[Rfam]
The record is a 132-nucleotide sequence from Weissella soli, which matches "Ribosomal protein L10 leader" in Rfam. Pairs were carried over by alignment from the consensus structure, which was predicted with CMfinder. A search with the family's covariance model found it, with a score of 61 bits. It is annotated as a cis-regulatory leader.
RNA sequence: AGUAAUAAACAGAUUCUACCUAAGACGCCGGUGGUCAUUUGACCUUAAUAUCCUGCCGAGGAAGUGUUAAAAAGAGCUUUAUGCUCCUUUGGACCCUCGGCACGAUUGUGUCGAGGGUUCUUAGUUAGAAUC
Numbered sequence: 001a002g003u004a005a006u007a008a009a010c011a012g013a014u015u016c017u018a019c020c021u022a023a024g025a026c027g028c029c030g031g032u033g034g035u036c037a038u039u040u041g042a043c044c045u046u047a048a049u050a051u052c053c054u055g056c057c058g059a060g061g062a063a064g065u066g067u068u069a070a071a072a073a074g075a076g077c078u079u080u081a082u083g084c085u086c087c088u089u090u091g092g093a094c095c096c097u098c099g100g101c102a103c104g105a106u107u108g109u110g111u112c113g114a115g116g117g118u119u120c121u122u123a124g125u126u127a128g129a130a131u132c
Base pairs, nucleotide, nucleotide: 027056028055030053031052033044034043035042094117095116096115097114098113099112100111101110102109103108